Description
MIR1520 microRNA precursor family: a 110-nucleotide RNA from Glycine max. Its family is annotated with miRNA-mediated post-transcriptional gene silencing and RISC complex in the Gene Ontology. It scores 60 bits against the family's covariance model. Lineage of the source: Eukaryota > Tracheophyta > Pentapetalae > Fabales > Glycine subgen. Soja.
[Rfam]
RNA sequence: UUUUUAUUGGACAUUGACUAUCACGUGUUGCACACUUAUUGGAUGUUAAUUUCGUGUACCUAAUUAACAUUAAUCUCCAAUAAAAUCACGACAUAUGAUAGUCAGCGUCC
Numbered sequence: 001u002u003u004u005u006a007u008u009g010g011a012c013a014u015u016g017a018c019u020a021u022c023a024c025g026u027g028u029u030g031c032a033c034a035c036u037u038a039u040u041g042g043a044u045g046u047u048a049a050u051u052u053c054g055u056g057u058a059c060c061u062a063a064u065u066a067a068c069a070u071u072a073a074u075c076u077c078c079a080a081u082a083a084a085a086u087c088a089c090g091a092c093a094u095a096u097g098a099u100a101g102u103c104a105g106c107g108u109c110c
Stems, first nucleotide, its partner, number of pairs: 020099004025094002029090002036083001038081003